[Rfam]
RNA sequence: UGAGAGUUUAAGGCCAUAGCAGAAGUGCUCGUGGUGUGGCCCUGUCAGAUUCCAAUGAAUCUGCAAAUUCUGCU
Numbered sequence: 001u002g003a004g005a006g007u008u009u010a011a012g013g014c015c016a017u018a019g020c021a022g023a024a025g026u027g028c029u030c031g032u033g034g035u036g037u038g039g040c041c042c043u044g045u046c047a048g049a050u051u052c053c054a055a056u057g058a059a060u061c062u063g064c065a066a067a068u069u070c071u072g073c074u
Base pairs, nucleotide, nucleotide: 012041013040014039015038018074019073020072021071022070023069024068025037026036027035046063047062048061049060050059051058052057